[Rfam]
RNA sequence: AAAGACCGUUGGAGGUGCUAUACCAAAAUAGGUAUGGCUGAGAGAGUCUCCUUGAACCUGAUCCGGGUAAUACCGGCGGAGGGAAACGCGUUGCCGCAAGG
Numbered sequence: 001a002a003a004g005a006c007c008g009u010u011g012g013a014g015g016u017g018c019u020a021u022a023c024c025a026a027a028a029u030a031g032g033u034a035u036g037g038c039u040g041a042g043a044g045a046g047u048c049u050c051c052u053u054g055a056a057c058c059u060g061a062u063c064c065g066g067g068u069a070a071u072a073c074c075g076g077c078g079g080a081g082g083g084a085a086a087c088g089c090g091u092u093g094c095c096g097c098a099a100g101g
Stems, first nucleotide, its partner, number of pairs: 007088004011051004016045001017038008057082003063076004
Rfam assigns this 101-nucleotide RNA sequence from a Desulfobulbaceae bacterium to the family "TPP riboswitch aptamer (THI element)". The source organism's lineage runs through Bacteria, Pseudomonadati, Desulfobulbia, Desulfobulbales and Desulfobulbaceae. From the family's description: Vitamin B(1) in its active form thiamin pyrophosphate (TPP) is an essential coenzyme that is synthesised by coupling of pyrimidine and thiazole moieties in bacteria.